[Rfam]
RNA sequence: AGCAUCGUGAGGUGCCGCAUAAAGGAAGUCAGACUGCAAAACCCUGUACUGAUGUAUAAGAAUCGCAUAAGGCGGGUGUCUGUAAGGAUAAGGUGGCACAGCCUGUCCUCGAUUUAUCGGGAUCAUACCAAAGUCCAAAUUUACCGAUUAACAGGCUACGUAGAUGCGGCAGGGAUAGGGUGAACCGACCGAA
Numbered sequence: 001a002g003c004a005u006c007g008u009g010a011g012g013u014g015c016c017g018c019a020u021a022a023a024g025g026a027a028g029u030c031a032g033a034c035u036g037c038a039a040a041a042c043c044c045u046g047u048a049c050u051g052a053u054g055u056a057u058a059a060g061a062a063u064c065g066c067a068u069a070a071g072g073c074g075g076g077u078g079u080c081u082g083u084a085a086g087g088a089u090a091a092g093g094u095g096g097c098a099c100a101g102c103c104u105g106u107c108c109u110c111g112a113u114u115u116a117u118c119g120g121g122a123u124c125a126u127a128c129c130a131a132a133g134u135c136c137a138a139a140u141u142u143a144c145c146g147a148u149u150a151a152c153a154g155g156c157u158a159c160g161u162a163g164a165u166g167c168g169g170c171a172g173g174g175a176u177a178g179g180g181u182g183a184a185c186c187g188a189c190c191g192a193a
Stems, first nucleotide, its partner, number of pairs: 002015005029193001032190001035187002041181006047174001049172003063169005072161003076157001078156006086136004092129004
Shown here is a 193-nucleotide sequence from Salinivirga cyanobacteriivorans, a member of the family "Group II catalytic intron D1-D4-3".
The base pairs follow the family's consensus structure.
NCBI's taxonomy places the organism under Bacteria, Bacteroidota, Bacteroidia, Bacteroidales, Salinivirga.
A search with the family's covariance model found it, with a score of 89 bits.